A member of the RNA family "Histone 3' UTR stem-loop" from Lingula anatina, 46 nucleotides long. Lineage of the source: Eukaryota > Spiralia > Lophotrochozoa > Linguliformea > Lingula. The match comes from Rfam's covariance-model search (35 bits). Rfam classes the family as a cis-regulatory element. The mRNAs of metazoan histone genes lack a poly-A tail. 3' end processing occurs at a site between a highly conserved stem-loop (modelled by this family) and a purine rich region around 20 nts downstream (the histone downstream element, or HDE).
RNA sequence: CAAACGGUCCUUUUCAGGACCAACCAUAUAUUUCCAGAAAAGCUAU
Numbered sequence: 001c002a003a004a005c006g007g008u009c010c011u012u013u014u015c016a017g018g019a020c021c022a023a024c025c026a027u028a029u030a031u032u033u034c035c036a037g038a039a040a041a042g043c044u045a046u
Base pairs, nucleotide, nucleotide: 006021007020008019009018010017011016